A member of the RNA family "Plant small nucleolar RNA U3" from Setaria italica, 222 nucleotides long. Its Rfam clan is "U3 clan". A search with the family's covariance model found it, with a score of 188 bits. On this family, see Zwieb, Nucleic Acids Res 1997: "The uRNA database". From the family's description: Small nucleolar RNAs (snoRNAs) are involved in the processing and modification of rRNA in the nucleolus. There are two main classes of snoRNAs: the box C/D class, and the box H/ACA class. U3 snoRNA is a member of the box C/D class. Indeed, the box C/D element is a subset of the six short sequence elements found in all U3 snoRNAs, namely boxes A, A', B, C, C', and D. The U3 snoRNA secondary structure is characterised by a small 5' domain (with boxes A and A'), and a larger 3' domain (with boxes B, C, C', and D), the two domains being linked by a single-stranded hinge.
[Rfam]
RNA sequence: ACGACCUUACUUGAACAGGAUCUGUUCUAUAGGCUCGUACCGCUGCAUCCUUGACUAAUAAGGAGGCAAGCACUUAAGCUUGGUUGAUGACACAAGGCCUGUGGGCCAGAGCGUGAUUAACGGCCGGAUUUGCAGUAUCUAAUGCAUGAUCUAUGGCUGUAGAUGAUCGUUUCUGGUCAGCCUUAGCCUGGCUAGAGUGGCCCAUAGGUUGUCUGACAGGCU
Numbered sequence: 001a002c003g004a005c006c007u008u009a010c011u012u013g014a015a016c017a018g019g020a021u022c023u024g025u026u027c028u029a030u031a032g033g034c035u036c037g038u039a040c041c042g043c044u045g046c047a048u049c050c051u052u053g054a055c056u057a058a059u060a061a062g063g064a065g066g067c068a069a070g071c072a073c074u075u076a077a078g079c080u081u082g083g084u085u086g087a088u089g090a091c092a093c094a095a096g097g098c099c100u101g102u103g104g105g106c107c108a109g110a111g112c113g114u115g116a117u118u119a120a121c122g123g124c125c126g127g128a129u130u131u132g133c134a135g136u137a138u139c140u141a142a143u144g145c146a147u148g149a150u151c152u153a154u155g156g157c158u159g160u161a162g163a164u165g166a167u168c169g170u171u172u173c174u175g176g177u178c179a180g181c182c183u184u185a186g187c188c189u190g191g192c193u194a195g196a197g198u199g200g201c202c203c204a205u206a207g208g209u210u211g212u213c214u215g216a217c218a219g220g221c222u
Base pairs, nucleotide, nucleotide: 001038002037003035005033006032007031013027014026015025016024017023018022044068045067046066048064049063050062051061052060053059078221079220080219081218082217097209098208099207100206101205102204103203104202105201106200107199108198110171111170112169113168120160121159122158123157124156125155126151127150129148131146132145133144134143136141173195174194175193176192177191178190179189180188182186